[Rfam]
RNA sequence: AUACGAAAAAGGCAAACCAGCUGAAAGGCUGGGACGCAAAGCUUAGGAGCCUAAGACCUGGAACUUGGAGGUUAUGGCCGUCCAGCUGCCGUG
Numbered sequence: 001a002u003a004c005g006a007a008a009a010a011g012g013c014a015a016a017c018c019a020g021c022u023g024a025a026a027g028g029c030u031g032g033g034a035c036g037c038a039a040a041g042c043u044u045a046g047g048a049g050c051c052u053a054a055g056a057c058c059u060g061g062a063a064c065u066u067g068g069a070g071g072u073u074a075u076g077g078c079c080g081u082c083c084a085g086c087u088g089c090c091g092u093g
Stems, first nucleotide, its partner, number of pairs: 012037002017032006040087004046083003049078003056072004